[Rfam]
RNA sequence: CCUGGUCCGCAGCCGAACCCUGUCGGCGGAUCGGCGUUUGGACCCGACAGGGGCGGAGGACCCACCAACCGGCAGCACCGUUCAGCUGCCUUUGGGGUGAAGCCUCGCUUGGAUUCGGCAUCAACUGUCUUGCCACGGUGAUGCCGCAUGCCAUGUGCGUGGCCGAGUUUUCUUCUACUCGAACCCGACAGCUAACUUCGCAGGCUUCCAGGAGAGGGAAG
Numbered sequence: 001c002c003u004g005g006u007c008c009g010c011a012g013c014c015g016a017a018c019c020c021u022g023u024c025g026g027c028g029g030a031u032c033g034g035c036g037u038u039u040g041g042a043c044c045c046g047a048c049a050g051g052g053g054c055g056g057a058g059g060a061c062c063c064a065c066c067a068a069c070c071g072g073c074a075g076c077a078c079c080g081u082u083c084a085g086c087u088g089c090c091u092u093u094g095g096g097g098u099g100a101a102g103c104c105u106c107g108c109u110u111g112g113a114u115u116c117g118g119c120a121u122c123a124a125c126u127g128u129c130u131u132g133c134c135a136c137g138g139u140g141a142u143g144c145c146g147c148a149u150g151c152c153a154u155g156u157g158c159g160u161g162g163c164c165g166a167g168u169u170u171u172c173u174u175c176u177a178c179u180c181g182a183a184c185c186c187g188a189c190a191g192c193u194a195a196c197u198u199c200g201c202a203g204g205c206u207u208c209c210a211g212g213a214g215a216g217g218g219a220a221g
Stems, first nucleotide, its partner, number of pairs: 011206004018052009053201006063094002095186003103162002106159003165180004